RNA sequence: GCCCCAAGCGACCAUGGCUGUAGACUGUUACCGCUCUCUGCGGCUGCUACAGUAACAAUCUAAAGCCACGGUCACCCAGGAGAC
Numbered sequence: 001g002c003c004c005c006a007a008g009c010g011a012c013c014a015u016g017g018c019u020g021u022a023g024a025c026u027g028u029u030a031c032c033g034c035u036c037u038c039u040g041c042g043g044c045u046g047c048u049a050c051a052g053u054a055a056c057a058a059u060c061u062a063a064a065g066c067c068a069c070g071g072u073c074a075c076c077c078a079g080g081a082g083a084c
Stems, first nucleotide, its partner, number of pairs: 012071002015068004023060002026057006